[Rfam]
Nucleotides: 101
Stems, first nucleotide, its partner, number of pairs: 001101005010089009019079003025055002028053007039095001041093002059076006
Number, partner (000 for none) and nucleotide at each position: 001101a002100g003099c004098a005097g006000a007000g008000c009000a010089g011088g012087u013086a014085u015084u016083a017082c018081g019079c020078g021077u022000u023000a024000a025055g026054u027000g028053u029052u030051a031050g032049a033048g034047g035000a036000u037000g038000g039095g040000a041093g042092u043000a044000u045000a046000g047034c048033c049032u050031c051030u052029a053028a054026a055025c056000g057000a058000a059076a060075a061074a062073c063072c064071u065000a066000a067000a068000u069000u070000u071064a072063g073062g074061u075060u076059u077021g078020c079019g080000a081018u082017g083016u084015a085014a086013u087012a088011u089010u090000u091000c092042a093041u094000c095039c096000a097005c098004u099003g100002u101001u
This 101-nucleotide RNA from Clostridium sp. N3C belongs to the Rfam family "THF (Tetrahydrofolate) riboswitch aptamer". The family has 101 seed sequences and 747 matches in Rfam 15.1. Lineage of the source: Bacteria > Bacillati > Clostridia > Clostridiaceae > Clostridium. Tetrahydrofolate (THF) riboswitch was first reported for Ames et al. as an RNA motif in 5' untranslated (5'-UTR)regions of folate transport and biosynthesis genes in Firmicutes genomes. It scores 63 bits against the family's covariance model. Gene Ontology term of the family: tetrahydrofolate metabolic process. A reference for the family is Trausch et al. (2011), "The structure of a tetrahydrofolate-sensing riboswitch reveals two ligand binding sites in a single aptamer", Structure.